[Rfam]
RNA sequence: AGGUAUAAAUAUGCAGGCCAGAAUCGGGCAAGAGAUGAUGAGGUGGAUCCAAUCAAGGAGGAUGAGGCCCACUUCUAGUAGCUGUACACACCUCUAGAUCAGCUACUAGAAGUGGGCCUCAUCCUCCUUGAUUGGAUCCACCUCAUCAUCUCUUGCCCGAUUCUGGCCUGCAUAUUUAUACCU
Numbered sequence: 001a002g003g004u005a006u007a008a009a010u011a012u013g014c015a016g017g018c019c020a021g022a023a024u025c026g027g028g029c030a031a032g033a034g035a036u037g038a039u040g041a042g043g044u045g046g047a048u049c050c051a052a053u054c055a056a057g058g059a060g061g062a063u064g065a066g067g068c069c070c071a072c073u074u075c076u077a078g079u080a081g082c083u084g085u086a087c088a089c090a091c092c093u094c095u096a097g098a099u100c101a102g103c104u105a106c107u108a109g110a111a112g113u114g115g116g117c118c119u120c121a122u123c124c125u126c127c128u129u130g131a132u133u134g135g136a137u138c139c140a141c142c143u144c145a146u147c148a149u150c151u152c153u154u155g156c157c158c159g160a161u162u163c164u165g166g167c168c169u170g171c172a173u174a175u176u177u178a179u180a181c182c183u
Stems, first nucleotide, its partner, number of pairs: 001183007009175007017167003021163008030154004035149005041143008051133002054130002057127001061123003067117011084106002
RNA: MIR807 microRNA precursor family
Organism: Pelodiscus sinensis